[Rfam]
RNA sequence: UUGUUAUCUGAAGCAGAGUCUUCAAUGAUGA
Numbered sequence: 001u002u003g004u005u006a007u008c009u010g011a012a013g014c015a016g017a018g019u020c021u022u023c024a025a026u027g028a029u030g031a
Stems, first nucleotide, its partner, number of pairs: 001031007009024005014018001
RNA: Iron response element II
Organism: Salvator merianae